[Rfam]
RNA sequence: GACCUAACCCGUGGGUUAUCCAUGGCAAGGUCGACAAACCCCAACGAAGACACUGAACCCCGCGUUCAGCCGCUCUUCGUUGGGUUAUGCCGGGAAACUGGCAUAGGGCCGCAAGGCCC
Numbered sequence: 001g002a003c004c005u006a007a008c009c010c011g012u013g014g015g016u017u018a019u020c021c022a023u024g025g026c027a028a029g030g031u032c033g034a035c036a037a038a039c040c041c042c043a044a045c046g047a048a049g050a051c052a053c054u055g056a057a058c059c060c061c062g063c064g065u066u067c068a069g070c071c072g073c074u075c076u077u078c079g080u081u082g083g084g085u086u087a088u089g090c091c092g093g094g095a096a097a098c099u100g101g102c103a104u105a106g107g108g109c110c111g112c113a114a115g116g117c118c119c
Stems, first nucleotide, its partner, number of pairs: 001032004009025006040084011053069006086105008106119005
The record is a 119-nucleotide RNA, which matches "LOOT RNA" in Rfam. It is one of the family's seed sequences.